[Rfam]
RNA sequence: AAGGCUUUAGGGCUAAUCGCUUCCGUAAGGAAGAGGAAAGUCCGGACUUCACAGAGCAGGGAGACAGCUAAUGGCUGCUGAGAGUAAUCUUAAGGAAAGUGCCACAGAAAAUAAACCGCCGUUUACGGUAAGGGUGAAAAGGUAGUGUAAGAGACUACCAGUGGUCUAAGAAAUUUGACCAGCUAGGUAAACCCCUCCUGAAGCAAGAAUAAAUAUAAGUCUAAAAAGGAGUUGCUCGCUCUGACUUUAGGGUAAUUUGCUCGAGCUGACAGUUAAUUGUCAGUCUAGAUAAAUGAUUAGCAGAAACAAAAUCCGGCUUAUACUAAGGCCUUUAUA
Numbered sequence: 001a002a003g004g005c006u007u008u009a010g011g012g013c014u015a016a017u018c019g020c021u022u023c024c025g026u027a028a029g030g031a032a033g034a035g036g037a038a039a040g041u042c043c044g045g046a047c048u049u050c051a052c053a054g055a056g057c058a059g060g061g062a063g064a065c066a067g068c069u070a071a072u073g074g075c076u077g078c079u080g081a082g083a084g085u086a087a088u089c090u091u092a093a094g095g096a097a098a099g100u101g102c103c104a105c106a107g108a109a110a111a112u113a114a115a116c117c118g119c120c121g122u123u124u125a126c127g128g129u130a131a132g133g134g135u136g137a138a139a140a141g142g143u144a145g146u147g148u149a150a151g152a153g154a155c156u157a158c159c160a161g162u163g164g165u166c167u168a169a170g171a172a173a174u175u176u177g178a179c180c181a182g183c184u185a186g187g188u189a190a191a192c193c194c195c196u197c198c199u200g201a202a203g204c205a206a207g208a209a210u211a212a213a214u215a216u217a218a219g220u221c222u223a224a225a226a227a228g229g230a231g232u233u234g235c236u237c238g239c240u241c242u243g244a245c246u247u248u249a250g251g252g253u254a255a256u257u258u259g260c261u262c263g264a265g266c267u268g269a270c271a272g273u274u275a276a277u278u279g280u281c282a283g284u285c286u287a288g289a290u291a292a293a294u295g296a297u298u299a300g301c302a303g304a305a306a307c308a309a310a311a312u313c314c315g316g317c318u319u320a321u322a323c324u325a326a327g328g329c330c331u332u333u334a335u336a
Stems, first nucleotide, its partner, number of pairs: 001332010011321001012301007020033005038319003042316005047203004054237004059199005065077004079093001080091004094194002099192002101188003116133002118129004141159006161183001162181005168175002207258004218248002222244001228242005265284008